[Rfam]
RNA: mir-548 microRNA precursor family
Organism: Cebus imitator
RNA sequence: UAUUUGGUUGGUGCAAAAGUAACUGUAGUUUUUGCCAUUAAAAGUAUUGGCAAAAACCACAGUUACUUUUGCACUAACCUAAUA
Numbered sequence: 001u002a003u004u005u006g007g008u009u010g011g012u013g014c015a016a017a018a019g020u021a022a023c024u025g026u027a028g029u030u031u032u033u034g035c036c037a038u039u040a041a042a043a044g045u046a047u048u049g050g051c052a053a054a055a056a057c058c059a060c061a062g063u064u065a066c067u068u069u070u071g072c073a074c075u076a077a078c079c080u081a082a083u084a
Stems, first nucleotide, its partner, number of pairs: 001084004006079021028057010039046002